Background: The record is a 174-nucleotide RNA from Triticum aestivum, which matches "Small nucleolar RNA Z112" in Rfam. For this family Rfam cites "A novel gene organization: intronic snoRNA gene clusters from Oryza sativa" (Liang et al., Nucleic Acids Res, 2002). The match comes from Rfam's covariance-model search (61 bits). Rfam links the family to the GO terms nucleolus and RNA processing. The family's consensus secondary structure was predicted with PFOLD. By type it is a C/D-box small nucleolar RNA.
[Rfam]
RNA sequence: AGUUGAGUCAUCUAUUUUAGAACGGAGGGAGUAUAUUGUAAACAACAGCCACUUCUCCACUGCAUGUGUUCUCAUUUGGUCAUAACCUUUGUGGUUUGUCUAUAGGCUGGAAUGCCCAUUUGCCCCCGGUUUGGUUCAGCUCUGAAUGUUCUAUUAAGUGGGUUCCUUUCACUU
Numbered sequence: 001a002g003u004u005g006a007g008u009c010a011u012c013u014a015u016u017u018u019a020g021a022a023c024g025g026a027g028g029g030a031g032u033a034u035a036u037u038g039u040a041a042a043c044a045a046c047a048g049c050c051a052c053u054u055c056u057c058c059a060c061u062g063c064a065u066g067u068g069u070u071c072u073c074a075u076u077u078g079g080u081c082a083u084a085a086c087c088u089u090u091g092u093g094g095u096u097u098g099u100c101u102a103u104a105g106g107c108u109g110g111a112a113u114g115c116c117c118a119u120u121u122g123c124c125c126c127c128g129g130u131u132u133g134g135u136u137c138a139g140c141u142c143u144g145a146a147u148g149u150u151c152u153a154u155u156a157a158g159u160g161g162g163u164u165c166c167u168u169u170c171a172c173u174u
Base pairs, nucleotide, nucleotide: 001174002173004171005170062123063122064121066119067118068117069111070110071109072106073105078101079100081098082097084096085095086094087093